Shown here is a 66-nucleotide RNA sequence from Urocitellus parryii, a member of the family "mir-718 microRNA precursor family".
The match comes from Rfam's covariance-model search (67 bits).
The family's consensus secondary structure was predicted with RNAalifold.
Rfam links the family to the GO terms RISC complex and miRNA-mediated post-transcriptional gene silencing.
[Rfam]
RNA sequence: GCGGCGGCGGGGCGCAAGAUGGCGGCGGACCCGAGCGCCGCCUCUUCCGCCCCGCCGGGCGUUGCA
Numbered sequence: 001g002c003g004g005c006g007g008c009g010g011g012g013c014g015c016a017a018g019a020u021g022g023c024g025g026c027g028g029a030c031c032c033g034a035g036c037g038c039c040g041c042c043u044c045u046u047c048c049g050c051c052c053c054g055c056c057g058g059g060c061g062u063u064g065c066a
Base pairs, nucleotide, nucleotide: 001065002064003063004062005061008057009056010055012052014050015049018047019046021044022043024042025041026040027039028038030035